[Rfam]
RNA sequence: CCCUCAGUCAUUGGGGAGUAGCUGACCUGCGCAACGCAGGAGCCCGCGUCAACACACUUGGCCUUCGGCCAUGGCGCGAGCAGCUUUAGAGCCUGGCAAGACCUUUGACCACGUCACCUCGGUAUGGGCCGGGAAGUGGCGUGGUCUUCGCGUCGCUGGCCCAGGGAGUUC
Number, nucleotide and partner (000 for none) at each position: 001c000002c000003c000004u000005c000006a000007g000008u000009c000010a000011u000012u000013g000014g000015g000016g000017a000018g000019u000020a000021g000022c000023u000024g000025a000026c040027c039028u038029g000030c000031g000032c000033a000034a000035c000036g000037c000038a028039g027040g026041a000042g081043c080044c000045c078046g077047c076048g075049u074050c073051a072052a000053c000054a000055c000056a000057c000058u000059u071060g070061g069062c068063c067064u000065u000066c000067g063068g062069c061070c060071a059072u051073g050074g049075c048076g047077c046078g045079a000080g043081c042082a170083g169084c168085u167086u166087u165088a000089g000090a000091g000092c000093c000094u000095g000096g000097c000098a000099a000100g000101a000102c000103c000104u000105u000106u000107g000108a000109c000110c000111a000112c000113g000114u000115c000116a000117c000118c000119u000120c000121g000122g000123u000124a000125u000126g000127g000128g000129c000130c000131g000132g000133g000134a000135a000136g000137u000138g000139g000140c000141g000142u000143g000144g000145u000146c000147u000148u000149c000150g000151c000152g000153u000154c000155g000156c000157u000158g000159g000160c000161c000162c000163a000164g000165g087166g086167a085168g084169u083170u082171c000